[Rfam]
RNA sequence: GAAUAAUAUAAGCAAACCUUCUGAAAGGAAGGGACGCAAAGCCAUGGGUCUAAAGAGGGUUAAAUCUAUGAUUGCCAGGUUGCACUU
Numbered sequence: 001g002a003a004u005a006a007u008a009u010a011a012g013c014a015a016a017c018c019u020u021c022u023g024a025a026a027g028g029a030a031g032g033g034a035c036g037c038a039a040a041g042c043c044a045u046g047g048g049u050c051u052a053a054a055g056a057g058g059g060u061u062a063a064a065u066c067u068a069u070g071a072u073u074g075c076c077a078g079g080u081u082g083c084a085c086u087u
Stems, first nucleotide, its partner, number of pairs: 012037002017032006040081004045077003048072003055066002
The family of this 87-nucleotide RNA sequence from Sporomusa ovata is "c-di-GMP-I riboswitch aptamer". Taxonomically the source falls in Sporomusa (Bacteria, Bacillota, Selenomonadales, Sporomusaceae). GEMM was predicted in a large-scale screen for bacterial structured RNA regulatory elements. The base pairs follow the family's consensus structure, which is taken from published work. The match comes from Rfam's covariance-model search (74 bits).